[Rfam]
RNA sequence: GCUUCCGAGGAGCGUUGCAGCGCCCCUGCCGAUGGUGGGGCGUGAGGCUCGGAACAGAAACACAACGACGCUCACCCGCU
Numbered sequence: 001g002c003u004u005c006c007g008a009g010g011a012g013c014g015u016u017g018c019a020g021c022g023c024c025c026c027u028g029c030c031g032a033u034g035g036u037g038g039g040g041c042g043u044g045a046g047g048c049u050c051g052g053a054a055c056a057g058a059a060a061c062a063c064a065a066c067g068a069c070g071c072u073c074a075c076c077c078g079c080u
Base pairs, nucleotide, nucleotide: 003054004053005052006051007050008049021042022041023040024039025038026037
About this RNA: The record is an 80-nucleotide RNA sequence from Tibeticola sediminis, which matches "SAH (S-adenosyl-L-homocysteine) riboswitch aptamer" in Rfam. Taxonomically the source falls in Tibeticola (Bacteria, Betaproteobacteria, Burkholderiales, Comamonadaceae). The family's consensus secondary structure is taken from published work. A reference for the family is Wang et al. (2008), "Riboswitches that sense S-adenosylhomocysteine and activate genes involved in coenzyme recycling", Mol Cell. A search with the family's covariance model found it, with a score of 62 bits.